[Rfam]
Shown here is a 65-nucleotide RNA sequence from Rattus norvegicus, a member of the family "U7 small nuclear RNA". The source organism's lineage runs through Eukaryota, Vertebrata, Gnathostomata, Theria and Rattus. Animal histone pre-mRNAs are spliced by a different mechanism than nuclear pre-mRNAs and self-splicing introns. This processing involves the U7 snRNP, which contains only one RNA species: U7. The 5' end of U7 RNA is thought to base-pair to a conserved spacer element downstream of the cleavage site in histone pre-mRNA. This family contains a number of annotated U7 pseudogenes.
RNA sequence: UGCUAAAACAGCUCUUUUAGAAAUUGUCUAGCUGGUUUUCUGAAAUUAUUUUUGGAAAAGCCUAG
Numbered sequence: 001u002g003c004u005a006a007a008a009c010a011g012c013u014c015u016u017u018u019a020g021a022a023a024u025u026g027u028c029u030a031g032c033u034g035g036u037u038u039u040c041u042g043a044a045a046u047u048a049u050u051u052u053u054g055g056a057a058a059a060g061c062c063u064a065g
Base pairs, nucleotide, nucleotide: 034062035061036060037058038057039056040055041054042053043052044051
The match comes from Rfam's covariance-model search (48 bits). The family's consensus secondary structure was predicted with PFOLD.